[Rfam]
RNA sequence: AGGGCCGGUCGAAAGACCCAGGUCGAUUUGACGGCGGGGAAGUUCCUC
Numbered sequence: 001a002g003g004g005c006c007g008g009u010c011g012a013a014a015g016a017c018c019c020a021g022g023u024c025g026a027u028u029u030g031a032c033g034g035c036g037g038g039g040a041a042g043u044u045c046c047u048c
Stems, first nucleotide, its partner, number of pairs: 003024004007018004

The record is a 48-nucleotide sequence, which matches "DUF3800-XI RNA" in Rfam. The base pairs follow the family's consensus structure, which is taken from published work. Actinobacteria, Firmicutes, Proteobacteria, Spirochaetes (1 example).